[Rfam]
RNA sequence: AAAGUUGCUUACGCCACCGCAAUGGAUUGGUUUAUAGCUGUGUGUUACGCAUUU
Numbered sequence: 001a002a003a004g005u006u007g008c009u010u011a012c013g014c015c016a017c018c019g020c021a022a023u024g025g026a027u028u029g030g031u032u033u034a035u036a037g038c039u040g041u042g043u044g045u046u047a048c049g050c051a052u053u054u
Stems, first nucleotide, its partner, number of pairs: 001054003006051003010047002013045002015042003019038002022035005